[Rfam]
RNA sequence: AUACUUACCUGGCGUAGGGGAUACCGUGAUCAUGCAGGCGAUUCCCCCAGGACGAGGCUACUCCAUUGCACUGCGGAGUCGUUGACCCUUGCGAUUAUCCCUAAUGCGGAUGACUCGGACGCGUAAUUUUUAUAAAUCAUUGU
Numbered sequence: 001a002u003a004c005u006u007a008c009c010u011g012g013c014g015u016a017g018g019g020g021a022u023a024c025c026g027u028g029a030u031c032a033u034g035c036a037g038g039c040g041a042u043u044c045c046c047c048c049a050g051g052a053c054g055a056g057g058c059u060a061c062u063c064c065a066u067u068g069c070a071c072u073g074c075g076g077a078g079u080c081g082u083u084g085a086c087c088c089u090u091g092c093g094a095u096u097a098u099c100c101c102u103a104a105u106g107c108g109g110a111u112g113a114c115u116c117g118g119a120c121g122c123g124u125a126a127u128u129u130u131u132a133u134a135a136a137u138c139a140u141u142g143u
Base pairs, nucleotide, nucleotide: 012122013121014120015119017047018046019045020044021043023042025040026039027038049090050089051088054086056083057082058081060079061078062077063076064075092117093116094115095113096112097111099109100108
Dot-bracket structure: ...........((((.(((((.(.(((..........))).)))))).(((..(.(((.(((((..........))))).)))..).))).((((((.((.......)).))).))).)))).....................
U1 spliceosomal RNA: a 143-nucleotide sequence from Bombyx mori.
Rfam's curators write: U1 is a small nuclear RNA (snRNA) component of the spliceosome (involved in pre-mRNA splicing). Its 5' end forms complementary base pairs with the 5' splice junction, thus defining the 5' donor site of an intron. There are significant differences in sequence and secondary structure between metazoan and yeast U1 snRNAs, the latter being much longer (568 nucleotides as compared to 164 nucleotides in human). Nevertheless, secondary structure predictions suggest that all U1 snRNAs share a 'common core' consisting of helices I, II, the proximal region of III, and IV. This family does not contain the larger yeast sequences.
Clan: U1 clan.
Rfam links the family to the GO terms U1 snRNP, pre-mRNA 5'-splice site binding and mRNA 5'-splice site recognition.